The family of this 102-nucleotide RNA is "DUF3577 RNA". It is annotated as a cis-regulatory element.
RNA sequence: CGAAUCGGACAGCGCAGGAAACUGCGUCAAACUCGCCUGCAACUCCGGCAUCACUGCAUUGCGGUGUGGCGACUGAAACCUCCGCCCAUGAGGCGCGUGUUA
Numbered sequence: 001c002g003a004a005u006c007g008g009a010c011a012g013c014g015c016a017g018g019a020a021a022c023u024g025c026g027u028c029a030a031a032c033u034c035g036c037c038u039g040c041a042a043c044u045c046c047g048g049c050a051u052c053a054c055u056g057c058a059u060u061g062c063g064g065u066g067u068g069g070c071g072a073c074u075g076a077a078a079c080c081u082c083c084g085c086c087c088a089u090g091a092g093g094c095g096c097g098u099g100u101u102a
Stems, first nucleotide, its partner, number of pairs: 012027006033072005052066006083097003086093002